[Rfam]
RNA: Fluoride riboswitch aptamer (crcB RNA motif)
Organism: Coprococcus sp. CAG:782
RNA sequence: UAUAGACCAGGGAAUGAGGCACUCCCUUGACAAGAUUUGUCUAAACCGCCCGAAAUGGCUGAUGGCUUCUGCAUUUUA
Numbered sequence: 001u002a003u004a005g006a007c008c009a010g011g012g013a014a015u016g017a018g019g020c021a022c023u024c025c026c027u028u029g030a031c032a033a034g035a036u037u038u039g040u041c042u043a044a045a046c047c048g049c050c051c052g053a054a055a056u057g058g059c060u061g062a063u064g065g066c067u068u069c070u071g072c073a074u075u076u077u078a
Stems, first nucleotide, its partner, number of pairs: 010026004016069005048059003